[Rfam]
Background
Rfam assigns this 96-nucleotide sequence from Sciurus carolinensis to the family "mir-544 microRNA precursor family". Rfam 15.1 lists 10,750 matches to the family in 132 species. Gene Ontology terms of the family: RISC complex and miRNA-mediated post-transcriptional gene silencing.
RNA sequence: AUCAUCUGGAGCUCUUGUUAAAAUGUAGAUUCUGAGUCAGCAGAUACAGCGUGGCCUGAGAUUCUGCAUUUCUAACAAGCUCUCAAGUGAUCUCUA
Numbered sequence: 001a002u003c004a005u006c007u008g009g010a011g012c013u014c015u016u017g018u019u020a021a022a023a024u025g026u027a028g029a030u031u032c033u034g035a036g037u038c039a040g041c042a043g044a045u046a047c048a049g050c051g052u053g054g055c056c057u058g059a060g061a062u063u064c065u066g067c068a069u070u071u072c073u074a075a076c077a078a079g080c081u082c083u084c085a086a087g088u089g090a091u092c093u094c095u096a
Base pairs, nucleotide, nucleotide: 003089004088005087009083011081014079015078016077017076018075019074020073021071022070023069025067026066027065028064029063031061032060033059